[Rfam]
RNA sequence: UUAGGAUCUAGACCUGACAUAUCUUCGUACGACCAUGCAAAAAUAUCCGGGUAUUCUCGGAGGAGCUGGAUGAUCUUCUUUUUAGCCCCUUCCUCUAGAGCAGCACCGAUCUUGAUUUCUCGCUUGUUCUCUUCGGUACCUAUGUUGAUGAGCUCAAUCUCUUCCUGG
Numbered sequence: 001u002u003a004g005g006a007u008c009u010a011g012a013c014c015u016g017a018c019a020u021a022u023c024u025u026c027g028u029a030c031g032a033c034c035a036u037g038c039a040a041a042a043a044u045a046u047c048c049g050g051g052u053a054u055u056c057u058c059g060g061a062g063g064a065g066c067u068g069g070a071u072g073a074u075c076u077u078c079u080u081u082u083u084a085g086c087c088c089c090u091u092c093c094u095c096u097a098g099a100g101c102a103g104c105a106c107c108g109a110u111c112u113u114g115a116u117u118u119c120u121c122g123c124u125u126g127u128u129c130u131c132u133u134c135g136g137u138a139c140c141u142a143u144g145u146u147g148a149u150g151a152g153c154u155c156a157a158u159c160u161c162u163u164c165c166u167g168g
Stems, first nucleotide, its partner, number of pairs: 002167005010160003016154001018152001020150004026144004031139001032137003040130001042128004048122002050119002052102001054100003059096007068087002071084003

This 168-nucleotide RNA sequence from Medicago truncatula belongs to the Rfam family "MIR2680 microRNA precursor family". The organism belongs to Medicago, within Eukaryota. Pairs were carried over by alignment from the consensus structure, which was predicted with RNAalifold. Its family is annotated with miRNA-mediated post-transcriptional gene silencing and RISC complex in the Gene Ontology.